This 596-nucleotide part of an RNA from Brugia malayi belongs to the Rfam family "Eukaryotic large subunit ribosomal RNA". On this family, see Cannone et al., BMC Bioinformatics 2002: "The comparative RNA web (CRW) site: an online database of comparative sequence and structure information for ribosomal, intron, and other RNAs". It is one of the family's seed sequences. Rfam 15.1 lists 107,465 matches to the family in 2,616 species.
RNA sequence: GAAGACCCUGUUGAGCUUGACUCUAGUCCGACUCUGUGAAGAGUCAUGAGAGGUGUAGCAUAAGUGGGAGGUUUUUUUUGUAUUUAUUAUACAAAUACCAACAGUGAAAUACCACUACUUUCAUCGAUUCUUUACUUAUUCGGUAAAACGAGAAUUGAAAUAUUAUAUGUAUUUCGAAAUUUUUGAUUUAAGUUAAAUCACUCGGUGAUUUAACGACUCGCACCGAAGACAGUGUCAGGCGGGGAGUUUGACUGGGGCGGUACAUCUGUCAAAACGUAACGCAGGUGUCCUAAGGCUAGCUCAGAGAGGACGGAAACCUCUCGUAGAGUAAAAGGGCAAAAGCUCGCUUGAUCUUGAUUUCCAGUACGAAUACAGACCGCGAAAGCGUGGCCUAUCGAUCCUUUUGAAUUUUUUAGAAGGUUUCUAGCAAGAGGUGUCAGAAAAGUUACCACAGGGAUAACUGGCUUGUGGCAGCCAAGCGUUCAUAGCGACGUUGCUUUUUGAUCCUUCGAUGUCGGCUCUUCCUAUCAUUGCGAAGCAGAAUUCGCCAAGCGUUGGAUUGUUCACCCACCAAUAGGGAACGUGAGCUGGGUUUA
Numbered sequence: 001g002a003a004g005a006c007c008c009u010g011u012u013g014a015g016c017u018u019g020a021c022u023c024u025a026g027u028c029c030g031a032c033u034c035u036g037u038g039a040a041g042a043g044u045c046a047u048g049a050g051a052g053g054u055g056u057a058g059c060a061u062a063a064g065u066g067g068g069a070g071g072u073u074u075u076u077u078u079u080g081u082a083u084u085u086a087u088u089a090u091a092c093a094a095a096u097a098c099c100a101a102c103a104g105u106g107a108a109a110u111a112c113c114a115c116u117a118c119u120u121u122c123a124u125c126g127a128u129u130c131u132u133u134a135c136u137u138a139u140u141c142g143g144u145a146a147a148a149c150g151a152g153a154a155u156u157g158a159a160a161u162a163u164u165a166u167a168u169g170u171a172u173u174u175c176g177a178a179a180u181u182u183u184u185g186a187u188u189u190a191a192g193u194u195a196a197a198u199c200a201c202u203c204g205g206u207g208a209u210u211u212a213a214c215g216a217c218u219c220g221c222a223c224c225g226a227a228g229a230c231a232g233u234g235u236c237a238g239g240c241g242g243g244g245a246g247u248u249u250g251a252c253u254g255g256g257g258c259g260g261u262a263c264a265u266c267u268g269u270c271a272a273a274a275c276g277u278a279a280c281g282c283a284g285g286u287g288u289c290c291u292a293a294g295g296c297u298a299g300c301u302c303a304g305a306g307a308g309g310a311c312g313g314a315a316a317c318c319u320c321u322c323g324u325a326g327a328g329u330a331a332a333a334g335g336g337c338a339a340a341a342g343c344u345c346g347c348u349u350g351a352u353c354u355u356g357a358u359u360u361c362c363a364g365u366a367c368g369a370a371u372a373c374a375g376a377c378c379g380c381g382a383a384a385g386c387g388u389g390g391c392c393u394a395u396c397g398a399u400c401c402u403u404u405u406g407a408a409u410u411u412u413u414u415a416g417a418a419g420g421u422u423u424c425u426a427g428c429a430a431g432a433g434g435u436g437u438c439a440g441a442a443a444a445g446u447u448a449c450c451a452c453a454g455g456g457a458u459a460a461c462u463g464g465c466u467u468g469u470g471g472c473a474g475c476c477a478a479g480c481g482u483u484c485a486u487a488g489c490g491a492c493g494u495u496g497c498u499u500u501u502u503g504a505u506c507c508u509u510c511g512a513u514g515u516c517g518g519c520u521c522u523u524c525c526u527a528u529c530a531u532u533g534c535g536a537a538g539c540a541g542a543a544u545u546c547g548c549c550a551a552g553c554g555u556u557g558g559a560u561u562g563u564u565c566a567c568c569c570a571c572c573a574a575u576a577g578g579g580a581a582c583g584u585g586a587g588c589u590g591g592g593u594u595u596a
Stems, first nucleotide, its partner, number of pairs: 007455004012451002014447005020247004027239002030236003036135010046124007063116005070099002139227005149220004157175007192214008250263001251261003264286006289390002295347002298344003301327002304322006328337002352376003357371004378387003401433006413427004464505001466503001468502001470498006479489002516591001517589004521583001522580005529554001533548005556570003560566001